[Rfam]
RNA sequence: GGAGUGAUGUCUGAGUGGCCGAAAGAGCUCGAUUGCUAAUCGAGUAUACAGCUCCCUGUACCGAGGGUUCGAAUCCCUCUCACUCCG
Numbered sequence: 001g002g003a004g005u006g007a008u009g010u011c012u013g014a015g016u017g018g019c020c021g022a023a024a025g026a027g028c029u030c031g032a033u034u035g036c037u038a039a040u041c042g043a044g045u046a047u048a049c050a051g052c053u054c055c056c057u058g059u060a061c062c063g064a065g066g067g068u069u070c071g072a073a074u075c076c077c078u079c080u081c082a083c084u085c086c087g
Base pairs, nucleotide, nucleotide: 001086002085003084004083005082006081007080010026011025012024028044029043030042031041032040063079064078065077066076067075

The record is an 87-nucleotide sequence from Pseudochlorella pringsheimii, which matches "tRNA" in Rfam.
The family's consensus secondary structure is taken from published work.